[Rfam]
RNA: DUF805b RNA
Organism: Chitinophaga skermanii
RNA sequence: ACAGGGAAACCGAAAACCUGUAAAAUAGAGUAGGGU
Numbered sequence: 001a002c003a004g005g006g007a008a009a010c011c012g013a014a015a016a017c018c019u020g021u022a023a024a025a026u027a028g029a030g031u032a033g034g035g036u
Stems, first nucleotide, its partner, number of pairs: 002020004010034002